[Rfam]
RNA sequence: UCCACUGUGGGAUGGGAUCUGAAAGAAGCUGAUGUGGGGAAUACACUAACCUACGGGCAAAUCUCUGAUUUGACAAACAGAAAUCAUAUAAGAGAUUAAGCAUAAGGGUAAGACUGUAGGACAAGUUGAAGCUCAAUAACUACACGGAGUCAUGCAUGAUAAAUGUGACAGAUGGAUGGAGAACUUGAAAGUCCG
Numbered sequence: 001u002c003c004a005c006u007g008u009g010g011g012a013u014g015g016g017a018u019c020u021g022a023a024a025g026a027a028g029c030u031g032a033u034g035u036g037g038g039g040a041a042u043a044c045a046c047u048a049a050c051c052u053a054c055g056g057g058c059a060a061a062u063c064u065c066u067g068a069u070u071u072g073a074c075a076a077a078c079a080g081a082a083a084u085c086a087u088a089u090a091a092g093a094g095a096u097u098a099a100g101c102a103u104a105a106g107g108g109u110a111a112g113a114c115u116g117u118a119g120g121a122c123a124a125g126u127u128g129a130a131g132c133u134c135a136a137u138a139a140c141u142a143c144a145c146g147g148a149g150u151c152a153u154g155c156a157u158g159a160u161a162a163a164u165g166u167g168a169c170a171g172a173u174g175g176a177u178g179g180a181g182a183a184c185u186u187g188a189a190a191g192u193c194c195g
Stems, first nucleotide, its partner, number of pairs: 001016004006011001050195001053192002058187001062182006068173005084168006095160003100155004105150001106134004112127004

Description:
Shown here is a 195-nucleotide sequence from Eubacterium sp. 14-2, a member of the family "Group II catalytic intron D1-D4-3". From the family's description: Group II introns are found in rRNA, tRNA and mRNA of organelles in fungi, plants and protists, and also in mRNA in bacteria. The pairing is the family consensus, mapped onto this sequence. A reference for the family is Lehmann and Schmidt (2003), "Group II introns: structure and catalytic versatility of large natural ribozymes", Crit Rev Biochem Mol Biol.